[Rfam]
RNA sequence: GCGUUCGCUCCAUACUUCUUUACAUUCCAUAAGUUUCAAAAAGCAAUAUGAGAAGUAAGGAAGUAAGGAACUUGCGC
Numbered sequence: 001g002c003g004u005u006c007g008c009u010c011c012a013u014a015c016u017u018c019u020u021u022a023c024a025u026u027c028c029a030u031a032a033g034u035u036u037c038a039a040a041a042a043g044c045a046a047u048a049u050g051a052g053a054a055g056u057a058a059g060g061a062a063g064u065a066a067g068g069a070a071c072u073u074g075c076g077c
Stems, first nucleotide, its partner, number of pairs: 007071001009069003013065011025053001028050004
RNA: mir-1 microRNA precursor family
Organism: Zootermopsis nevadensis